[Rfam]
RNA sequence: UGCUUAUCCAGAAAGAUGGAGGGAAAGGCCCUGCGAAAUCUUGGCAACCUGUAAUAACAAGGUGCUAAUUCCUGUCCGCCAAGGCGGAGAAGAUAAGUG
Numbered sequence: 001u002g003c004u005u006a007u008c009c010a011g012a013a014a015g016a017u018g019g020a021g022g023g024a025a026a027g028g029c030c031c032u033g034c035g036a037a038a039u040c041u042u043g044g045c046a047a048c049c050u051g052u053a054a055u056a057a058c059a060a061g062g063u064g065c066u067a068a069u070u071c072c073u074g075u076c077c078g079c080c081a082a083g084g085c086g087g088a089g090a091a092g093a094u095a096a097g098u099g
Stems, first nucleotide, its partner, number of pairs: 001099008013042005021031003026073003043066004048062002050059003070091001075088005
Source information
Shown here is a 99-nucleotide RNA from Pararcticibacter amylolyticus, a member of the family "SAM riboswitch aptamer (S box leader)". Gene Ontology term of the family: regulation of gene expression. The family's consensus secondary structure is taken from published work.